[Rfam]
RNA sequence: GUGUUGAGUAGAAGCGGUUAGGGAAAGAUCCCGGGACAUUGCUCAAUAA
Numbered sequence: 001g002u003g004u005u006g007a008g009u010a011g012a013a014g015c016g017g018u019u020a021g022g023g024a025a026a027g028a029u030c031c032c033g034g035g036a037c038a039u040u041g042c043u044c045a046a047u048a049a
Stems, first nucleotide, its partner, number of pairs: 005045006015034001018036002021032004
Source information:
Rfam assigns this 49-nucleotide RNA from Photobacterium halotolerans to the family "Xanthine riboswitch aptamer (NMT1 RNA)". A reference for the family is Yu and Breaker (2020), "A bacterial riboswitch class senses xanthine and uric acid to regulate genes associated with purine oxidation", RNA. NCBI's taxonomy places the organism under Bacteria, Pseudomonadati, Gammaproteobacteria, Vibrionales, Photobacterium. Its family is annotated with purine nucleobase binding in the Gene Ontology. The family's consensus secondary structure is taken from published work.